[Rfam]
RNA sequence: GGAUGUGAAGGCGAUGUGGCUGCGACAUCUGUCACCCCACUGAUCCCCAGGGUUGAUUCAGCCGAUCUGGCUAGAUGGGUGUCCCCUUCCUCCCUCACUGCUCCAUGUGCAUCCCCCCCGAACCUGCGCACUCGGUCGAAAAGGAUGACCUUCCUCAAUAGAGGUGCAUCAAUCAUUGGUAGCUGCACUCCCCUGCUAGAACCUCCAAACAAGCUCAAGGUCCAUUUGUAGGAGAACAUAGGGUAGUCAAGCUUCCAAGACUGCAGACAUAUCCAAGUGAGGCACUGCAUGGGGCAGUCUGCCAUUGCUU
Numbered sequence: 001g002g003a004u005g006u007g008a009a010g011g012c013g014a015u016g017u018g019g020c021u022g023c024g025a026c027a028u029c030u031g032u033c034a035c036c037c038c039a040c041u042g043a044u045c046c047c048c049a050g051g052g053u054u055g056a057u058u059c060a061g062c063c064g065a066u067c068u069g070g071c072u073a074g075a076u077g078g079g080u081g082u083c084c085c086c087u088u089c090c091u092c093c094c095u096c097a098c099u100g101c102u103c104c105a106u107g108u109g110c111a112u113c114c115c116c117c118c119c120g121a122a123c124c125u126g127c128g129c130a131c132u133c134g135g136u137c138g139a140a141a142a143g144g145a146u147g148a149c150c151u152u153c154c155u156c157a158a159u160a161g162a163g164g165u166g167c168a169u170c171a172a173u174c175a176u177u178g179g180u181a182g183c184u185g186c187a188c189u190c191c192c193c194u195g196c197u198a199g200a201a202c203c204u205c206c207a208a209a210c211a212a213g214c215u216c217a218a219g220g221u222c223c224a225u226u227u228g229u230a231g232g233a234g235a236a237c238a239u240a241g242g243g244u245a246g247u248c249a250a251g252c253u254u255c256c257a258a259g260a261c262u263g264c265a266g267a268c269a270u271a272u273c274c275a276a277g278u279g280a281g282g283c284a285c286u287g288c289a290u291g292g293g294g295c296a297g298u299c300u301g302c303c304a305u306u307g308c309u310u
Stems, first nucleotide, its partner, number of pairs: 001104003005098004010093002013089002018086002024083010037070003042067004047061001113166001114164002117161001118135004136158001138156001143154003182252003188246002191243005203234004209229005275310003279305001281303003284298005

The family of this 310-nucleotide RNA from Alectura lathami is "7SK RNA". The family is grouped with related families in Rfam's "7SK clan". By type it is a non-coding RNA gene. The match comes from Rfam's covariance-model search (269 bits).